[Rfam]
RNA sequence: UAAAUUCUUUGGGGCGGGGUGAAAUUCCCCACCGGCAGUAAAGUCUGCGAAAGGGCAGUUUUGUCCUCCGAACGGGUGCGAUUCCCGUACCGACGGUAUAGUCCGGAUGAAAAAAGAAUUGU
Numbered sequence: 001u002a003a004a005u006u007c008u009u010u011g012g013g014g015c016g017g018g019g020u021g022a023a024a025u026u027c028c029c030c031a032c033c034g035g036c037a038g039u040a041a042a043g044u045c046u047g048c049g050a051a052a053g054g055g056c057a058g059u060u061u062u063g064u065c066c067u068c069c070g071a072a073c074g075g076g077u078g079c080g081a082u083u084c085c086c087g088u089a090c091c092g093a094c095g096g097u098a099u100a101g102u103c104c105g106g107a108u109g110a111a112a113a114a115a116g117a118a119u120u121g122u
Base pairs, nucleotide, nucleotide: 003120004119005118006117007116008115009114010113017029018028019027031102032101033092034091035048036047037046038045043090044089052067053066072088073087074086075085076084094105095104096103

Background:
The family of this 122-nucleotide RNA sequence from Candidatus Borkfalkia ceftriaxoniphila is "FMN riboswitch aptamer (RFN element)". The organism belongs to Candidatus Borkfalkia, within Bacteria.